RNA: 6S / SsrS RNA
RNA sequence: UUAAAGCUGCGUUGUUCGUACACAUAUUAAGUUUUAACCUUUGAACUGUAAAAGGGAGUUUUAUAUAGAAGAUGGAAUGGCGAGCGUCACACUACGGUGAAUGACGAUAUACAGGAGAUCUUUUGCGAACACCCACUUUGAGGAGUGGUGGUUUAAAACUUUCUAUAAUUAUUACGGCAAGGCGGCUUUGCC
Numbered sequence: 001u002u003a004a005a006g007c008u009g010c011g012u013u014g015u016u017c018g019u020a021c022a023c024a025u026a027u028u029a030a031g032u033u034u035u036a037a038c039c040u041u042u043g044a045a046c047u048g049u050a051a052a053a054g055g056g057a058g059u060u061u062u063a064u065a066u067a068g069a070a071g072a073u074g075g076a077a078u079g080g081c082g083a084g085c086g087u088c089a090c091a092c093u094a095c096g097g098u099g100a101a102u103g104a105c106g107a108u109a110u111a112c113a114g115g116a117g118a119u120c121u122u123u124u125g126c127g128a129a130c131a132c133c134c135a136c137u138u139u140g141a142g143g144a145g146u147g148g149u150g151g152u153u154u155a156a157a158a159c160u161u162u163c164u165a166u167a168a169u170u171a172u173u174a175c176g177g178c179a180a181g182g183c184g185g186c187u188u189u190g191c192c
Stems, first nucleotide, its partner, number of pairs: 002190009012180004017176003030160004035155003038151002054134003058130004065124001068123006079112001085106005